[Rfam]
RNA sequence: GGGGUGUGCAAUAGACACCUCCACGUGGUGCACCCUGGGCAACGUAUUCUCAUACGGCAAAAAAGUCUAU
Numbered sequence: 001g002g003g004g005u006g007u008g009c010a011a012u013a014g015a016c017a018c019c020u021c022c023a024c025g026u027g028g029u030g031c032a033c034c035c036u037g038g039g040c041a042a043c044g045u046a047u048u049c050u051c052a053u054a055c056g057g058c059a060a061a062a063a064a065g066u067c068u069a070u
Base pairs, nucleotide, nucleotide: 001036002035003034004033005032006031007030017029018028019027043056044055045054046053047052